Shown here is an 84-nucleotide RNA from Bombyx mori, a member of the family "mir-2807 microRNA precursor family". NCBI's taxonomy places the organism under Eukaryota, Aparaglossata, Amphiesmenoptera, Bombycoidea, Bombyx. The base pairs follow the family's consensus structure, which was predicted with RNAalifold. Gene Ontology terms of the family: miRNA-mediated post-transcriptional gene silencing and RISC complex.
RNA sequence: UUAGCUUAUAUUUGUAUGGAAUGGGAUCGUUUUCCUAAGUUUGCCGUUAGGGGCGCUGUUCCAACUGCAUACAAAAUUGGGAUA
Dot-bracket structure: .......(..((((((.(.(.(.(((.((....(((..((.....))..)))....)).))).).).).))))))..)......

Rfam 15.1 lists 5,120 matches to the family in 8 species.